About this RNA: Selenocysteine insertion sequence 1: a 66-nucleotide sequence from Mytilus edulis. A reference for the family is Walczak et al. (1996), "A novel RNA structural motif in the selenocysteine insertion element of eukaryotic selenoprotein mRNAs", RNA. NCBI's taxonomy places the organism under Eukaryota, Opisthokonta, Pteriomorphia, Mytilinae, Mytilus. Gene Ontology term of the family: selenocysteine incorporation. The base pairs follow the family's consensus structure, which is taken from published work.

RNA sequence: CAUAUAUGUUAUGAUGGUAUGAUUCUAAAUCCCCUCACGGGAAGGAUUGUGCCUGAUAUUCAUAUG
Numbered sequence: 001c002a003u004a005u006a007u008g009u010u011a012u013g014a015u016g017g018u019a020u021g022a023u024u025c026u027a028a029a030u031c032c033c034c035u036c037a038c039g040g041g042a043a044g045g046a047u048u049g050u051g052c053c054u055g056a057u058a059u060u061c062a063u064a065u066g
Stems, first nucleotide, its partner, number of pairs: 001066005016053010031041003